[Rfam]
RNA sequence: UUUGGUCUAAGUUCUGCGAUACACUCUGACUGUGUAUGAGUUCAAGUCAGUGCAUAACAGAACUUCGUCCCGAU
Numbered sequence: 001u002u003u004g005g006u007c008u009a010a011g012u013u014c015u016g017c018g019a020u021a022c023a024c025u026c027u028g029a030c031u032g033u034g035u036a037u038g039a040g041u042u043c044a045a046g047u048c049a050g051u052g053c054a055u056a057a058c059a060g061a062a063c064u065u066c067g068u069c070c071c072g073a074u
Base pairs, nucleotide, nucleotide: 004070005069007067009065010064011063012062013061014060015059016058022052023051024050025049028048029047030046031045